The family of this 140-nucleotide sequence from Paenalicyclobacillus mengziensis is "FMN riboswitch aptamer (RFN element)". The family's consensus secondary structure is taken from published work. Taxonomically the source falls in Paenalicyclobacillus (Bacteria, Bacillota, Bacilli, Caryophanales). The family has 146 seed sequences and 6,230 matches in Rfam 15.1. Rfam links the family to the GO term FMN binding.
[Rfam]
RNA sequence: GUUUUCCUUCGGGGCAGGGUGAGGCGAAAGCCAAUUCCCGAUCGGUGGUGACGCAUUCAACAGCGAAGUCCACGAGCCGUAAGGCAGGAACUGGUGCAAAUCCAGUACCGACGGUAUAGUCCGGAUGAAAGAGGGAACCA
Numbered sequence: 001g002u003u004u005u006c007c008u009u010c011g012g013g014g015c016a017g018g019g020u021g022a023g024g025c026g027a028a029a030g031c032c033a034a035u036u037c038c039c040g041a042u043c044g045g046u047g048g049u050g051a052c053g054c055a056u057u058c059a060a061c062a063g064c065g066a067a068g069u070c071c072a073c074g075a076g077c078c079g080u081a082a083g084g085c086a087g088g089a090a091c092u093g094g095u096g097c098a099a100a101u102c103c104a105g106u107a108c109c110g111a112c113g114g115u116a117u118a119g120u121c122c123g124g125a126u127g128a129a130a131g132a133g134g135g136a137a138c139c140a
Stems, first nucleotide, its partner, number of pairs: 004137007017039003041120002043110002045073004068108002078084001090106005112123003